[Rfam]
RNA sequence: AGUCAUAUGCUUGUCUCAAAGAUUAAGCCAUGCAAGUCUAAGUUUAAAGAGAUUCUUCACACUACAACUGCGACCAGCUCAUUAGCUCAGUUAUAAUUUAUUUGAUAGUGCAACCUUUACUUGGAUACCCCGGGUAAAUCUCGAGCUAACACAUGCUAAAAUAGGCGAGGCUUCGGCUGAGCUUAGUGUUUAUUAGAUAAAAAAUCAAUGUCACUUGUGACUCUUUGAUGAUUCAUAAUAACCUUUCGAAUCGCAUGGCUUUAUGCUGGCGAUGGUUCAUUCAAAUUUCUGCCCUAUCAACUUUCGAUGGUAGGAUAGGGGCCUACCAUGGUUUCAACGGGUAACGGGGAAUUAGGGUUCGAUUCCGGAGAGGGAGCCUGAAAAACGGCUACCACAUCCAAGGAAGGCAGCAGGCGCGCAAAUUACCCAAUUCUAAUUCAGAGAGGUAGUGACAAUACAUAGCGAUACAGGGCCCUUUGGGUCUUGUAAUUGCAAUGAGUACAAUUUAAAAUUCUUAACGAGGAACAAUUGGAGGGCAAGUCUGGUGCCAGCAGCCGCGGUAAUUCCAGCUCCAAUAGCGUAUAUUAAAGUUGUUG
Numbered sequence: 001a002g003u004c005a006u007a008u009g010c011u012u013g014u015c016u017c018a019a020a021g022a023u024u025a026a027g028c029c030a031u032g033c034a035a036g037u038c039u040a041a042g043u044u045u046a047a048a049g050a051g052a053u054u055c056u057u058c059a060c061a062c063u064a065c066a067a068c069u070g071c072g073a074c075c076a077g078c079u080c081a082u083u084a085g086c087u088c089a090g091u092u093a094u095a096a097u098u099u100a101u102u103u104g105a106u107a108g109u110g111c112a113a114c115c116u117u118u119a120c121u122u123g124g125a126u127a128c129c130c131c132g133g134g135u136a137a138a139u140c141u142c143g144a145g146c147u148a149a150c151a152c153a154u155g156c157u158a159a160a161a162u163a164g165g166c167g168a169g170g171c172u173u174c175g176g177c178u179g180a181g182c183u184u185a186g187u188g189u190u191u192a193u194u195a196g197a198u199a200a201a202a203a204a205u206c207a208a209u210g211u212c213a214c215u216u217g218u219g220a221c222u223c224u225u226u227g228a229u230g231a232u233u234c235a236u237a238a239u240a241a242c243c244u245u246u247c248g249a250a251u252c253g254c255a256u257g258g259c260u261u262u263a264u265g266c267u268g269g270c271g272a273u274g275g276u277u278c279a280u281u282c283a284a285a286u287u288u289c290u291g292c293c294c295u296a297u298c299a300a301c302u303u304u305c306g307a308u309g310g311u312a313g314g315a316u317a318g319g320g321g322c323c324u325a326c327c328a329u330g331g332u333u334u335c336a337a338c339g340g341g342u343a344a345c346g347g348g349g350a351a352u353u354a355g356g357g358u359u360c361g362a363u364u365c366c367g368g369a370g371a372g373g374g375a376g377c378c379u380g381a382a383a384a385a386c387g388g389c390u391a392c393c394a395c396a397u398c399c400a401a402g403g404a405a406g407g408c409a410g411c412a413g414g415c416g417c418g419c420a421a422a423u424u425a426c427c428c429a430a431u432u433c434u435a436a437u438u439c440a441g442a443g444a445g446g447u448a449g450u451g452a453c454a455a456u457a458c459a460u461a462g463c464g465a466u467a468c469a470g471g472g473c474c475c476u477u478u479g480g481g482u483c484u485u486g487u488a489a490u491u492g493c494a495a496u497g498a499g500u501a502c503a504a505u506u507u508a509a510a511a512u513u514c515u516u517a518a519c520g521a522g523g524a525a526c527a528a529u530u531g532g533a534g535g536g537c538a539a540g541u542c543u544g545g546u547g548c549c550a551g552c553a554g555c556c557g558c559g560g561u562a563a564u565u566c567c568a569g570c571u572c573c574a575a576u577a578g579c580g581u582a583u584a585u586u587a588a589a590g591u592u593g594u595u596g
Base pairs, nucleotide, nucleotide: 001586002585003584005583006582007581008580009579010578011577013458014457016455020450021417027415028414029413031412032411033410036071037070041069042068043067048063049062078370079369080368088291089290090289093286094285097284098283103279104278105277120155122153123152129145131143132142133141134140162185163184164183165182166181169178170177190241191240192239193238194237195236204229205228206227207226211220212219213218251272252271253270254269256268257267258266259265293341294340295339300332301331302330307329308328309327310326311325312324313323314322345367346366347365348364349360350359351358352357372393373392375390376389377388395406397404398403423448425447426446427445431443432442433441434440463492464491465490466488467487468486469485470484471483472482473481474480475479499519500518501516503515529575530574531573532572533571534570542569543568544567545566551558552557

The record is a 596-nucleotide part of an RNA from Waltiozyma pijperi, which matches "Eukaryotic small subunit ribosomal RNA" in Rfam. A reference for the family is Yusupov et al. (2001), "Crystal structure of the ribosome at 5.5 A resolution", Science. It scores 1774 bits against the family's covariance model. Clan: SSU clan.